A member of the RNA family "TPP riboswitch aptamer (THI element)" from Bacillus benzoevorans, 109 nucleotides long. Taxonomically the source falls in Bacillus (Bacteria, Bacillati, Bacilli, Caryophanales). Gene Ontology term of the family: thiamine pyrophosphate binding. The match comes from Rfam's covariance-model search (71 bits).

[Rfam]
RNA sequence: AUCGACUGCUAGGGGUGCUCUAGAUGGAGCUGAGAAAAAAACGGCCAGUUUUUUAACCCUUGUACCUGAUCCGGAUCAUCCCGGCGGAGGAAAGUAGGAAAUAAAAGAC
Numbered sequence: 001a002u003c004g005a006c007u008g009c010u011a012g013g014g015g016u017g018c019u020c021u022a023g024a025u026g027g028a029g030c031u032g033a034g035a036a037a038a039a040a041a042c043g044g045c046c047a048g049u050u051u052u053u054u055a056a057c058c059c060u061u062g063u064a065c066c067u068g069a070u071c072c073g074g075a076u077c078a079u080c081c082c083g084g085c086g087g088a089g090g091a092a093a094g095u096a097g098g099a100a101a102u103a104a105a106a107g108a109c
Stems, first nucleotide, its partner, number of pairs: 006097005011060004017030005037053005065090003071084004